[Rfam]
Nucleotides: 046
Stems, first nucleotide, its partner, number of pairs: 001028008009019001
Number, partner (000 for none) and nucleotide at each position: 001028u002027g003026u004025c005024c006023a007022a008021g009019g010000c011000u012000a013000g014000u015000a016000u017000u018000a019009c020000c021008c022007u023006u024005g025004g026003a027002c028001a029000c030000u031000u032000c033000u034000g035000u036000a037000u038000c039000a040000u041000g042000u043000a044000a045000c046000a
ssNA-helicase RNA: a 46-nucleotide RNA from Firmicutes bacterium CAG:124.
The family's RNA type in Rfam is small RNA.
Lineage of the source: Bacteria > Bacillati > Bacillota.